[Rfam]
RNA sequence: CGAUGGGAUAGAGGCUGCUGCUUAUAAGAGUAGGACGGACGAGAUUUGAUGAGAUUGUUGACUCCGUUUGAAAGGAUAAGUUGCCGAAGUGUGGGUAGAUCAUUGGAUAUCCAUGCUGGUGAUGUUUUCGAACAGGAACAUCAUUGUCACGUUUUACAACGUGGAGAACUAUCUUCGGA
Number, nucleotide and partner (000 for none) at each position: 001c000002g000003a000004u000005g000006g174007g173008a172009u171010a170011g169012a000013g000014g000015c000016u000017g084018c083019u000020g081021c080022u079023u078024a077025u076026a000027a000028g000029a000030g000031u000032a000033g069034g068035a067036c066037g065038g064039a063040c000041g000042a000043g000044a000045u000046u000047u000048g000049a000050u000051g000052a000053g000054a000055u000056u000057g000058u000059u000060g000061a000062c000063u039064c038065c037066g036067u035068u034069u033070g000071a000072a000073a000074g000075g000076a025077u024078a023079a022080g021081u020082u000083g018084c017085c000086g000087a000088a117089g116090u115091g114092u113093g112094g111095g110096u109097a108098g000099a000100u000101c000102a000103u000104u000105g000106g000107a000108u097109a096110u095111c094112c093113a092114u091115g090116c089117u088118g145119g144120u143121g142122a141123u140124g139125u138126u137127u136128u135129c000130g000131a000132a000133c000134a000135g128136g127137a126138a125139c124140a123141u122142c121143a120144u119145u118146g000147u164148c163149a162150c161151g160152u159153u158154u000155u000156a000157c000158a153159a152160c151161g150162u149163g148164g147165a000166g000167a000168a000169c011170u010171a009172u008173c007174u006175u000176c000177g000178g000179a000
RNA: Lysine riboswitch aptamer
Organism: Sporosarcina sp. Te-1